[Rfam]
RNA sequence: CUGUAAUUGGUUAAAUGACGCGCAGAAACCGACACGUAAUCCCGGGUGCUCCAGUAAAGCUGGGGUUGGCUUACGGGGUCUCUGCAAGUUUGUAAC
Number, nucleotide and partner (000 for none) at each position: 001c000002u000003g000004u000005a000006a000007u000008u000009g000010g000011u000012u000013a000014a000015a000016u000017g000018a000019c000020g000021c000022g000023c084024a083025g082026a081027a000028a079029c078030c077031g000032a000033c000034a000035c075036g074037u073038a072039a071040u000041c069042c068043c000044g000045g000046g000047u000048g066049c065050u064051c063052c062053a000054g000055u000056a000057a000058a000059g000060c000061u000062g052063g051064g050065g049066u048067u000068g042069g041070c000071u039072u038073a037074c036075g035076g000077g030078g029079u028080c000081u026082c025083u024084g023085c000086a000087a000088g000089u000090u000091u000092g000093u000094a000095a000096c000
Source information:
The record is a 96-nucleotide RNA from gamma proteobacterium BDW918, which matches "t44 RNA" in Rfam. The base pairs follow the family's consensus structure, which was predicted with LocARNA. Rfam classes the family as a small RNA. From the family's description: This family consists of a number of bacterial RNA genes of between 135 and 170 bases in length. The source organism's lineage runs through Bacteria, Pseudomonadati, Pseudomonadota, Gammaproteobacteria and Spongiibacteraceae.